[Rfam]
Shown here is a 94-nucleotide sequence from Faecalibacterium sp. CAG:1138, a member of the family "THF (Tetrahydrofolate) riboswitch aptamer". The family's consensus secondary structure is taken from published work.

RNA sequence: AGCAGAGUAGGCAAGUCGCGUUAAGUGUUGCGGAAUGGAAUGUUGUCCGCAAACGAAAGGGGAUUCUCUGCGGUGGCUUGCCGCAUUCGUUGCU
Numbered sequence: 001a002g003c004a005g006a007g008u009a010g011g012c013a014a015g016u017c018g019c020g021u022u023a024a025g026u027g028u029u030g031c032g033g034a035a036u037g038g039a040a041u042g043u044u045g046u047c048c049g050c051a052a053a054c055g056a057a058a059g060g061g062g063a064u065u066c067u068c069u070g071c072g073g074u075g076g077c078u079u080g081c082c083g084c085a086u087u088c089g090u091u092g093c094u
Base pairs, nucleotide, nucleotide: 001094002093003092004091005090010082011081012080013079014078015077016076017075018074019072020071021070025054026053028052029051030050031049032048033047034046038088039087040086041085042084058069059068060067061066
About this RNA:
Taxonomically the source falls in Faecalibacterium (Bacteria, Bacillati, Clostridia, Eubacteriales). A reference for the family is Ames et al. (2010), "A eubacterial riboswitch class that senses the coenzyme tetrahydrofolate", Chem Biol. Rfam describes the family as follows. Tetrahydrofolate (THF) riboswitch was first reported for Ames et al. as an RNA motif in 5' untranslated (5'-UTR)regions of folate transport and biosynthesis genes in Firmicutes genomes.